[Rfam]
RNA: SAM-I/IV (S-adenosyl methionine) riboswitch aptamer
RNA sequence: AAUCUACAUCAAGAGAUGGCUUUGUCGCCACAGCAACCUGCUAACGCAGUAAGGUGCUAAAAAGAUGAGACCCCAAGUCAUACCAAGUGGGUAAUCAAAGCGACAAGC
Numbered sequence: 001a002a003u004c005u006a007c008a009u010c011a012a013g014a015g016a017u018g019g020c021u022u023u024g025u026c027g028c029c030a031c032a033g034c035a036a037c038c039u040g041c042u043a044a045c046g047c048a049g050u051a052a053g054g055u056g057c058u059a060a061a062a063a064g065a066u067g068a069g070a071c072c073c074c075a076a077g078u079c080a081u082a083c084c085a086a087g088u089g090g091g092u093a094a095u096c097a098a099a100g101c102g103a104c105a106a107g108c
Base pairs, nucleotide, nucleotide: 007067008066009065010064015031017030018029019028020027032058033057034056037054038053039052040050041049042048070092071091072090073089
Dot-bracket structure: ......((((....(.((((......)))))(((..((((((.....))).))).))).....))))..((((...............))))................